Source information
Shown here is a 102-nucleotide RNA from Citrus sinensis, a member of the family "MIR403 microRNA precursor family". NCBI's taxonomy places the organism under Eukaryota, Embryophyta, Euphyllophyta, Rutaceae, Citrus. A reference for the family is Mica et al. (2009), "High throughput approaches reveal splicing of primary microRNA transcripts and tissue specific expression of mature microRNAs in Vitis vinifera", BMC Genomics.
[Rfam]
RNA sequence: ACAGAUCGCGAGUUUGUGCGUGAAUCUAACGCCAUCAGAUGAGAGCGGGAAAACGGACGGCUGUGAUGGGGUUAGAUUCACGCACAAACUUGAGAUGUGCCC
Numbered sequence: 001a002c003a004g005a006u007c008g009c010g011a012g013u014u015u016g017u018g019c020g021u022g023a024a025u026c027u028a029a030c031g032c033c034a035u036c037a038g039a040u041g042a043g044a045g046c047g048g049g050a051a052a053a054c055g056g057a058c059g060g061c062u063g064u065g066a067u068g069g070g071g072u073u074a075g076a077u078u079c080a081c082g083c084a085c086a087a088a089c090u091u092g093a094g095a096u097g098u099g100c101c102c
Stems, first nucleotide, its partner, number of pairs: 002099002005096003011090016028073003032069006
Dot-bracket structure: .((.(((...((((((((((((((((.(((.((((((..........................)))))).))).))))))))))))))))...))).))...